[Rfam]
RNA: Repression of heat shock gene expression (ROSE) element
RNA sequence: CCGACCGCCAAAUGGGGUCGAAGCAGGGAGCGCCGAGCUUCUUCGCGCUCCCUCGUAUCUAUGUUGCUCUGUGGAGGAUGUAGCUAUGAGAC
Numbered sequence: 001c002c003g004a005c006c007g008c009c010a011a012a013u014g015g016g017g018u019c020g021a022a023g024c025a026g027g028g029a030g031c032g033c034c035g036a037g038c039u040u041c042u043u044c045g046c047g048c049u050c051c052c053u054c055g056u057a058u059c060u061a062u063g064u065u066g067c068u069c070u071g072u073g074g075a076g077g078a079u080g081u082a083g084c085u086a087u088g089a090g091a092c
Stems, first nucleotide, its partner, number of pairs: 002020005008015002027051007035043002052090006059083007067076003